RNA: S10-Clostridia ribosomal protein leader
Organism: Eubacterium sp. CAG:603
Nucleotides: 082
Base pairs, nucleotide, nucleotide: 014049015048016047018046019045020044021043025040026039027038028037029036058081059080060079061078064077065076066075067074
Number, partner (000 for none) and nucleotide at each position: 001000u002000g003000a004000u005000a006000g007000c008000u009000a010000u011000g012000a013000a014049g015048c016047g017000u018046g019045a020044g021043g022000u023000u024000g025040u026039u027038g028037c029036a030000c031000u032000u033000a034000g035000u036029u037028g038027c039026a040025a041000g042000u043021u044020u045019u046018c047016c048015g049014u050000g051000g052000a053000g054000c055000g056000a057000a058081u059080g060079u061078c062000a063000a064077g065076u066075u067074a068000g069000g070000a071000a072000a073000c074067u075066g076065a077064c078061g079060g080059c081058a082000a